The record is a 374-nucleotide RNA sequence from Thalassobaculum litoreum, which matches "Alphaproteobacteria transfer-messenger RNA" in Rfam. Bacterial tmRNA, also known as 10Sa RNA or SsrA, is named for its dual tRNA and mRNA-like properties. Lineage of the source: Bacteria > Pseudomonadota > Alphaproteobacteria > Thalassobaculum > Thalassobaculum litoreum. Rfam classes the family as a non-coding RNA gene.
Nucleotides: 374
Stems, first nucleotide, its partner, number of pairs: 041056005060212005070205004075200002085190003089187003095111005112172007213228003218239003223235002338354004344371006
Number, partner (000 for none) and nucleotide at each position: 001000a002000c003000c004000c005000u006000u007000u008000a009000a010000c011000a012000g013000c014000c015000g016000u017000u018000a019000a020000g021000a022000a023000g024000g025000g026000c027000u028000u029000a030000u031000a032000u033000c034000c035000u036000g037000c038000g039000a040000u041056g042055u043054c044053g045052g046000c047000u048000u049000c050000g051000g052045u053044c054043g055042a056041c057000u058000a059000u060212g061211g062210c063209g064208a065000u066000a067000a068000a069000c070205g071204g072203c073202g074000c075200u076199c077000g078000g079000a080000a081000u082000a083000a084000g085190c086189g087188u088000u089187g090186c091185g092000g093000a094000c095111c096110c097109g098108g099107g100000g101000g102000c103000a104000g105000u106000a107099c108098c109097c110096g111095g112172c113171g114170c115169c116168u117167c118166c119000a120000c121000c122000a123000a124000a125000a126000u127000c128000u129000c130000c131000g132000a133000c134000c135000g136000u137000u138000c139000u140000g141000a142000u143000g144000a145000a146000g147000a148000a149000u150000g151000g152000c153000c154000g155000g156000a157000a158000c159000g160000u161000u162000u163000c164000a165000u166118g167117g168116g169115g170114g171113c172112g173000a174000a175000a176000c177000a178000g179000g180000a181000u182000c183000g184000a185091c186090g187089c188087g189086c190085g191000u192000a193000g194000u195000a196000a197000a198000g199076g200075a201000c202073c203072g204071c205070u206000u207000u208064u209063u210062g211061c212060u213228c214227g215226g216000g217000a218239u219238g220237g221000u222000a223235c224234c225000g226215c227214c228213g229000u230000u231000a232000u233000c234224g235223g236000g237220c238219c239218g240000u241000a242000u243000g244000a245000u246000a247000g248000u249000u250000g251000c252000g253000a254000a255000c256000g257000a258000c259000a260000a261000c262000u263000a264000u265000g266000c267000u268000g269000a270000g271000g272000c273000g274000c275000g276000c277000c278000u279000g280000g281000c282000u283000g284000c285000g286000u287000a288000a289000u290000g291000c292000a293000g294000c295000u296000c297000g298000g299000u300000a301000g302000u303000c304000u305000c306000g307000a308000c309000u310000a311000a312000u313000c314000c315000g316000u317000u318000g319000c320000g321000g322000u323000u324000a325000g326000c327000g328000u329000c330000g331000u332000a333000a334000c335000g336000u337000g338354g339353g340352g341351c342000u343000c344371g345370c346369g347368g348367g349366c350000c351341g352340c353339c354338u355000a356000g357000c358000a359000a360000c361000a362000g363000a364000a365000g366349g367348c368347u369346c370345g371344c372000a373000c374000u